[Rfam]
RNA sequence: ACUCAGGCACGAUCUUUGCCGUGGGUUUCCUUAUGUGGGGACCCCGUGAGGAUGCGAAGAACCGACCUGAAGUUUCAAUCCUGAGGGA
Numbered sequence: 001a002c003u004c005a006g007g008c009a010c011g012a013u014c015u016u017u018g019c020c021g022u023g024g025g026u027u028u029c030c031u032u033a034u035g036u037g038g039g040g041a042c043c044c045c046g047u048g049a050g051g052a053u054g055c056g057a058a059g060a061a062c063c064g065a066c067c068u069g070a071a072g073u074u075u076c077a078a079u080c081c082u083g084a085g086g087g088a
Stems, first nucleotide, its partner, number of pairs: 001073003004069004013060007020046002